Record summary
This 127-nucleotide RNA from Cricetulus griseus belongs to the Rfam family "Small nucleolar RNA SNORA40". By type it is an H/ACA-box small nucleolar RNA. The snoRNA ACA 40 belongs to the H/ACA family of snoRNAs and guides the pseudouridylation of 28S rRNA subunit at position U4565. NB This family has a high threshold value to exclude a large number of closely related sequences that do not appear to have conserved H and ACA boxes, and may be pseudogenes. The literature on the family includes a 1997 paper in J Mol Biol by Ofengand and Bakin, "Mapping to nucleotide resolution of pseudouridine residues in large subunit ribosomal RNAs from representative eukaryotes, prokaryotes, archaebacteria, mitochondria and chloroplasts".
[Rfam]
RNA sequence: AGCACUUGUGUAUGUUUUUGUUCAGUGGAUGGCCAAACCAGGUUAGACAGGAGCAAAAAUUAAUCCUCUUUUGCAACUCGGAACUCCUUGUUCAGUGUGAGUUUUGAUACUUACAAGAAGGACUAUA
Numbered sequence: 001a002g003c004a005c006u007u008g009u010g011u012a013u014g015u016u017u018u019u020g021u022u023c024a025g026u027g028g029a030u031g032g033c034c035a036a037a038c039c040a041g042g043u044u045a046g047a048c049a050g051g052a053g054c055a056a057a058a059a060u061u062a063a064u065c066c067u068c069u070u071u072u073g074c075a076a077c078u079c080g081g082a083a084c085u086c087c088u089u090g091u092u093c094a095g096u097g098u099g100a101g102u103u104u105u106g107a108u109a110c111u112u113a114c115a116a117g118a119a120g121g122a123c124u125a126u127a
Stems, first nucleotide, its partner, number of pairs: 002054002005051005011045001017037004026031001063124001066121002069118005079106008088097001